[Rfam]
RNA sequence: UGUUGCAAAGGAAAUGGUGUCUUCCUAUUAAACCGUCUUCCACAAACAAAGACUAAUGACGCCUGCAAACAG
Number, nucleotide and partner (000 for none) at each position: 001u000002g000003u000004u000005g000006c000007a000008a000009a000010g025011g024012a023013a022014a000015u000016g063017g062018u061019g060020u059021c058022u013023u012024c011025c010026u000027a000028u000029u000030a000031a000032a000033c000034c000035g053036u052037c051038u050039u000040c000041c000042a000043c000044a000045a000046a000047c000048a000049a000050a038051g037052a036053c035054u000055a000056a000057u000058g021059a020060c019061g018062c017063c016064u000065g000066c000067a000068a000069a000070c000071a000072g000